The record is an 85-nucleotide RNA from Neophocaena asiaeorientalis, which matches "Small nucleolar RNA SNORD103/SNORD85" in Rfam.
[Rfam]
RNA sequence: UCUGGCAAUGAUGAGCCACUUGCCCUCUCUGAGAACAAAGUUCAGUUAAGAGAAUCUCUGUUAUGGACUCAAGUUCUGAGCCAGA
Numbered sequence: 001u002c003u004g005g006c007a008a009u010g011a012u013g014a015g016c017c018a019c020u021u022g023c024c025c026u027c028u029c030u031g032a033g034a035a036c037a038a039a040g041u042u043c044a045g046u047u048a049a050g051a052g053a054a055u056c057u058c059u060g061u062u063a064u065g066g067a068c069u070c071a072a073g074u075u076c077u078g079a080g081c082c083a084g085a
Base pairs, nucleotide, nucleotide: 001085002084003083004082005081006080
The base pairs follow the family's consensus structure. The organism belongs to Neophocaena asiaeorientalis, within Eukaryota. On this family, see Vitali et al., Nucleic Acids Res 2003: "Identification of 13 novel human modification guide RNAs". Rfam classes the family as a C/D-box small nucleolar RNA.